[Rfam]
The family of this 109-nucleotide RNA from Taishania pollutisoli is "SAM riboswitch aptamer (S box leader)". Taxonomically the source falls in Taishania (Bacteria, Pseudomonadati, Bacteroidota, Flavobacteriales). Rfam's curators write: The SAM riboswitch is found upstream of a number of genes which code for proteins involved in methionine or cysteine biosynthesis in Gram-positive bacteria.
RNA sequence: AACUUAUGAAGAAAGGUGGAGGGACAGGCCCUUUGAAACCUUGGCAACCUAUCUGUUGAUACGGAAAAGGUGCCAAUUCCUAUUCGUCAGCCGGCGGAAAAGAUAAGUG
Numbered sequence: 001a002a003c004u005u006a007u008g009a010a011g012a013a014a015g016g017u018g019g020a021g022g023g024a025c026a027g028g029c030c031c032u033u034u035g036a037a038a039c040c041u042u043g044g045c046a047a048c049c050u051a052u053c054u055g056u057u058g059a060u061a062c063g064g065a066a067a068a069g070g071u072g073c074c075a076a077u078u079c080c081u082a083u084u085c086g087u088c089a090g091c092c093g094g095c096g097g098a099a100a101a102g103a104u105a106a107g108u109g
Stems, first nucleotide, its partner, number of pairs: 002108006013042005021031003026081003043074004048070002050066001052064002078101001083098006